[Rfam]
RNA sequence: GGCCUAAACUACUCAUAAAUGAGUGGCAUGGUCUCAAAACGUUGAACACAGAAAGCUCCUAGUCAGAGCACGUGUUCAACGUCAUAUUUCGAAAGGAAUGUGGGUCUCCAAGAGAUC
Numbered sequence: 001g002g003c004c005u006a007a008a009c010u011a012c013u014c015a016u017a018a019a020u021g022a023g024u025g026g027c028a029u030g031g032u033c034u035c036a037a038a039a040c041g042u043u044g045a046a047c048a049c050a051g052a053a054a055g056c057u058c059c060u061a062g063u064c065a066g067a068g069c070a071c072g073u074g075u076u077c078a079a080c081g082u083c084a085u086a087u088u089u090c091g092a093a094a095g096g097a098a099u100g101u102g103g104g105u106c107u108c109c110a111a112g113a114g115a116u117c
Base pairs, nucleotide, nucleotide: 001033002032003031004030009026010025011024012023013022014021015020040081041080042079043078044077045076046075047074048073049072055069056068057067058066083102084101085100086099087098088097089096090095103117104116105115106114107113108112
Rfam assigns this 117-nucleotide RNA sequence to the family "LOOT RNA". Rfam's curators put it in the seed alignment.